[Rfam]
RNA: Lysine riboswitch aptamer
Organism: Slackia heliotrinireducens
RNA sequence: AAUCCUGAUAGAGGAGCUUCUCGGCAUUCCCGACGGACACACGGGACGAAUUGCCCGCCGUCGCGAGGGAAGGCCAGAAGCCGAAGGGACCAGCAAGAAUUCGAUUGCCGCUCCUUGGGACGUCGGAGAACAUCCGGCGGACUGUCACAGUGAUGUGGAGCGCUAUCGUGAUU
Numbered sequence: 001a002a003u004c005c006u007g008a009u010a011g012a013g014g015a016g017c018u019u020c021u022c023g024g025c026a027u028u029c030c031c032g033a034c035g036g037a038c039a040c041a042c043g044g045g046a047c048g049a050a051u052u053g054c055c056c057g058c059c060g061u062c063g064c065g066a067g068g069g070a071a072g073g074c075c076a077g078a079a080g081c082c083g084a085a086g087g088g089a090c091c092a093g094c095a096a097g098a099a100u101u102c103g104a105u106u107g108c109c110g111c112u113c114c115u116u117g118g119g120a121c122g123u124c125g126g127a128g129a130a131c132a133u134c135c136g137g138c139g140g141a142c143u144g145u146c147a148c149a150g151u152g153a154u155g156u157g158g159a160g161c162g163c164u165a166u167c168g169u170g171a172u173u
Stems, first nucleotide, its partner, number of pairs: 006168006016081006023075003028066002031063005085116005091110001093108004117143002121139007145158005